[Rfam]
RNA: Glycine riboswitch aptamer
Organism: Clostridium amylolyticum
RNA sequence: GUGAGAGUAACGGGAGAUAUCUUAAAGGAUAGCCGAAGGAGAAAUAUAGAAAAGAUGCCAAGCUUUUUAUAGAAACUUUCAGGCACAAGGAGCGUUACUUGAUG
Numbered sequence: 001g002u003g004a005g006a007g008u009a010a011c012g013g014g015a016g017a018u019a020u021c022u023u024a025a026a027g028g029a030u031a032g033c034c035g036a037a038g039g040a041g042a043a044a045u046a047u048a049g050a051a052a053a054g055a056u057g058c059c060a061a062g063c064u065u066u067u068u069a070u071a072g073a074a075a076c077u078u079u080c081a082g083g084c085a086c087a088a089g090g091a092g093c094g095u096u097a098c099u100u101g102a103u104g
Base pairs, nucleotide, nucleotide: 006099007098008097009096010095011094012093019030020029021028022027032084033083034082035080036079039078040077041076045071046070047069048068049067050066051065052064
Dot-bracket structure: .....(((((((......((((....)))).(((((..(((...((((((((...........))))))))....))))).)))........))))))).....